[Rfam]
RNA sequence: AAGACCUUUAAACAUUAGUCCAGAGAGGCUAAAAAGGUCGUGAAGUAAGCGUACAUACGGGGAUGAGUAUGUGUACGUAUACCUCUUUGCGACCUUUCGCAAAGAGGUUUUUUUA
Dot-bracket structure: ..(((((((.....((((((......))))))))))))).....(((.((((((.((......)).)))))).)))..(.((((((((((((....)))))))))))).).....
The record is a 115-nucleotide sequence from Alkalibacillus haloalkaliphilus, which matches "PyrR binding site" in Rfam. By type it is a cis-regulatory element. A search with the family's covariance model found it, with a score of 75 bits. The family's consensus secondary structure is taken from published work.